[Rfam]
RNA sequence: GGGAAUAGAUAGGUACUGGUGUGCCUGCCAGUCUUCAAAACUGUGCAGUCGUGCUAAUAACACGAUUGGUGGGUUCGAUUCCCACAUGUUCCC
Numbered sequence: 001g002g003g004a005a006u007a008g009a010u011a012g013g014u015a016c017u018g019g020u021g022u023g024c025c026u027g028c029c030a031g032u033c034u035u036c037a038a039a040a041c042u043g044u045g046c047a048g049u050c051g052u053g054c055u056a057a058u059a060a061c062a063c064g065a066u067u068g069g070u071g072g073g074u075u076c077g078a079u080u081c082c083c084a085c086a087u088g089u090u091c092c093c
Stems, first nucleotide, its partner, number of pairs: 001093007008085001011026006029043004047067005070084004
Rfam assigns this 93-nucleotide RNA from Clostridium sp. USBA 49 to the family "Selenocysteine transfer RNA". Its Rfam clan is "tRNA clan".